[Rfam]
RNA sequence: GUCGCAGGUACGGAGACAUGGUCCCCAAGACGAUCGCGGGGAAGAUCUUCGGUUCAAUCUGCUCUCUGAGCGGGGUGCUUGUAAUUGCCCUGCCUGUUCCUGUCAUCGUGUCCAAC
Numbered sequence: 001g002u003c004g005c006a007g008g009u010a011c012g013g014a015g016a017c018a019u020g021g022u023c024c025c026c027a028a029g030a031c032g033a034u035c036g037c038g039g040g041g042a043a044g045a046u047c048u049u050c051g052g053u054u055c056a057a058u059c060u061g062c063u064c065u066c067u068g069a070g071c072g073g074g075g076u077g078c079u080u081g082u083a084a085u086u087g088c089c090c091u092g093c094c095u096g097u098u099c100c101u102g103u104c105a106u107c108g109u110g111u112c113c114a115a116c
Stems, first nucleotide, its partner, number of pairs: 001116002004113001007112001009110005015104004020099002023096001039079002042076001051065002
RNA: Potassium channel RNA editing signal